[Rfam]
RNA: Mammalian CPEB3 ribozyme
Organism: Crocodylus porosus
RNA sequence: AGCCAAGAGCAAGAUCAUAGCAGAAGUGCUCACAACAUGGCCCUGUCAGAUUCUAACAAAUCUUUAAAUUCUGCU
Numbered sequence: 001a002g003c004c005a006a007g008a009g010c011a012a013g014a015u016c017a018u019a020g021c022a023g024a025a026g027u028g029c030u031c032a033c034a035a036c037a038u039g040g041c042c043c044u045g046u047c048a049g050a051u052u053c054u055a056a057c058a059a060a061u062c063u064u065u066a067a068a069u070u071c072u073g074c075u
Stems, first nucleotide, its partner, number of pairs: 013042001015040002019075007026038003048063005